[Rfam]
RNA sequence: AAAAGUUGUCACCGCAGGGCUUACUGUGAUAACUCUGUAGGUAUUCGUUCGACAGUAGAUUAAUGAACAACCUGAAAUGAAAGCCUUCAACCUGGUGAUUAGCCUAGUCGUGAUUAGCGUGGUGGUGAUUAUUAUCCCACCGUGCGGGGCAGCACUUGGACGAAGAAUGGCUUAGAAAUCAAGGCCGAAUUCAAGAAAACCCCCGCACCGAAAGGUCGGGGGUUUUUUUAUGGGCCGGCAAUCGCAACAAGGGAGCAGACAAUGUCGAUUAGCAUAAAAUCCUGUUUUCCCCAGAUAGA
Number, nucleotide and partner (000 for none) at each position: 001a000002a000003a000004a000005g033006u032007u031008g030009u029010c028011a027012c026013c000014g000015c000016a021017g000018g000019g000020c000021u016022u000023a000024c000025u000026g012027u011028g010029a009030u008031a007032a006033c005034u000035c000036u000037g000038u074039a073040g072041g071042u070043a000044u067045u066046c065047g064048u063049u059050c058051g000052a000053c000054a000055g000056u000057a000058g050059a049060u000061u000062a000063a048064u047065g046066a045067a044068c000069a000070a042071c041072c040073u039074g038075a000076a000077a000078u000079g000080a000081a000082a000083g000084c000085c253086u252087u251088c000089a000090a000091c000092c000093u246094g245095g000096u000097g243098a242099u241100u240101a000102g235103c234104c233105u232106a231107g000108u000109c119110g118111u117112g000113a000114u000115u000116a000117g111118c110119g109120u000121g141122g140123u139124g138125g137126u000127g136128a135129u134130u000131a000132u000133u000134a129135u128136c127137c125138c124139a123140c122141c121142g161143u160144g000145c158146g157147g156148g155149g000150c000151a000152g000153c000154a000155c148156u147157u146158g145159g000160a143161c142162g192163a191164a190165g000166a000167a000168u000169g186170g185171c184172u183173u182174a000175g000176a000177a000178a000179u000180c000181a000182a173183g172184g171185c170186c169187g000188a000189a000190u164191u163192c162193a000194a228195g227196a226197a225198a224199a223200c222201c221202c220203c219204c218205g217206c000207a216208c215209c214210g000211a000212a000213a000214g209215g208216u207217c205218g204219g203220g202221g201222g200223u199224u198225u197226u196227u195228u194229u000230a000231u106232g105233g104234g103235c102236c000237g000238g000239c000240a100241a099242u098243c097244g000245c094246a093247a000248c000249a000250a000251g087252g086253g085254a286255g285256c284257a283258g282259a000260c000261a000262a275263u274264g273265u000266c000267g000268a000269u000270u000271a000272g000273c264274a263275u262276a000277a000278a000279a000280u000281c000282c258283u257284g256285u255286u254287u000288u000289c000290c000291c000292c000293a000294g000295a000296u000297a000298g000299a000